The family of this 223-nucleotide sequence from Moorena producens is "HNH endonuclease-associated RNA and ORF (HEARO) RNA". On this family, see Weinberg et al., Nature 2009: "Exceptional structured noncoding RNAs revealed by bacterial metagenome analysis". Rfam classes the family as a non-coding RNA gene. The family has 139 seed sequences and 952 matches in Rfam 15.1.
RNA sequence: GUCACGAACCCACCGUUAACCGCUAACGCGGUAUAACGGGGGCUUGAAUAAGCUCACGACGUGACCAGCCUCAGACUUUUUAGUCUACGUUUUUUGAGCUAUCACACCUUUAGAUGCGUCGCUAGUCUUCUGCUCUGUGGUUGACAGUUAAACAGUCAUAAAUGGGUUAAGACAGUGCUGUUAACAAGACAAACUCAAAAAACAUUGGCGAAGCGAACUUAAC
Numbered sequence: 001g002u003c004a005c006g007a008a009c010c011c012a013c014c015g016u017u018a019a020c021c022g023c024u025a026a027c028g029c030g031g032u033a034u035a036a037c038g039g040g041g042g043c044u045u046g047a048a049u050a051a052g053c054u055c056a057c058g059a060c061g062u063g064a065c066c067a068g069c070c071u072c073a074g075a076c077u078u079u080u081u082a083g084u085c086u087a088c089g090u091u092u093u094u095u096g097a098g099c100u101a102u103c104a105c106a107c108c109u110u111u112a113g114a115u116g117c118g119u120c121g122c123u124a125g126u127c128u129u130c131u132g133c134u135c136u137g138u139g140g141u142u143g144a145c146a147g148u149u150a151a152a153c154a155g156u157c158a159u160a161a162a163u164g165g166g167u168u169a170a171g172a173c174a175g176u177g178c179u180g181u182u183a184a185c186a187a188g189a190c191a192a193a194c195u196c197a198a199a200a201a202a203c204a205u206u207g208g209c210g211a212a213g214c215g216a217a218c219u220u221a222a223c
Stems, first nucleotide, its partner, number of pairs: 001065006010042002013039006043052003068209003073086005089203010104138002108132001112128004116219001119216005140185009152176002155173003159169003